Rfam assigns this 83-nucleotide sequence from Danionella cerebrum to the family "mir-25 microRNA precursor family". For this family Rfam cites "A mammalian microRNA expression atlas based on small RNA library sequencing" (Landgraf et al., Cell, 2007). The organism belongs to Danionella, within Eukaryota.
RNA sequence: AGCCAGUGUUGUGAGGCUGAUACAUGGGCAAUUGCUGGUUUCCCAGAAGGCAUUGCACUUGUCUCGGUCUGACAGUGCUGGCA
Numbered sequence: 001a002g003c004c005a006g007u008g009u010u011g012u013g014a015g016g017c018u019g020a021u022a023c024a025u026g027g028g029c030a031a032u033u034g035c036u037g038g039u040u041u042c043c044c045a046g047a048a049g050g051c052a053u054u055g056c057a058c059u060u061g062u063c064u065c066g067g068u069c070u071g072a073c074a075g076u077g078c079u080g081g082c083a
Stems, first nucleotide, its partner, number of pairs: 002082003006078004014070004019065002022062002028056005034051003037043002